[Rfam]
RNA sequence: UGCAUCACUGAUGAUAAUUUGGCUCCCUCUACUGAAUACUGGUGAGGAGAUUGCCACUGUUACCCAAUUUCUGUCUGAGAUGCU
Numbered sequence: 001u002g003c004a005u006c007a008c009u010g011a012u013g014a015u016a017a018u019u020u021g022g023c024u025c026c027c028u029c030u031a032c033u034g035a036a037u038a039c040u041g042g043u044g045a046g047g048a049g050a051u052u053g054c055c056a057c058u059g060u061u062a063c064c065c066a067a068u069u070u071c072u073g074u075c076u077g078a079g080a081u082g083c084u
Stems, first nucleotide, its partner, number of pairs: 002083005
Rfam assigns this 84-nucleotide sequence from Lates calcarifer to the family "Small nucleolar RNA SNORD100". The source organism's lineage runs through Eukaryota, Euteleostomi, Actinopteri, Carangaria and Lates. The family's consensus secondary structure was predicted with RNAalifold. A search with the family's covariance model found it, with a score of 78 bits.